[Rfam]
RNA sequence: AAUCGUAUUUGUAGAAAUAAAAGAAACAGAUUUAUUCUAUACCAGAUAAGUAACAAUACGCAAUGGUG
Numbered sequence: 001a002a003u004c005g006u007a008u009u010u011g012u013a014g015a016a017a018u019a020a021a022a023g024a025a026a027c028a029g030a031u032u033u034a035u036u037c038u039a040u041a042c043c044a045g046a047u048a049a050g051u052a053a054c055a056a057u058a059c060g061c062a063a064u065g066g067u068g
Stems, first nucleotide, its partner, number of pairs: 003021001006019005043066001050059003
Shown here is a 68-nucleotide RNA sequence from Phaseolus vulgaris, a member of the family "Plastid-clpP 5UTR RNA". The family has 343 seed sequences and 2,105 matches in Rfam 15.1. Taxonomically the source falls in Phaseolus (Eukaryota, Viridiplantae, Streptophytina, Spermatophyta). The family's RNA type in Rfam is cis-regulatory element. Plastid clpP is a non-coding RNA (ncRNA) recognised in plastids. The literature on the family includes a 2023 paper in Plant Commun by Richter et al., "Retrograde signaling in plants: A critical review focusing on the GUN pathway and beyond".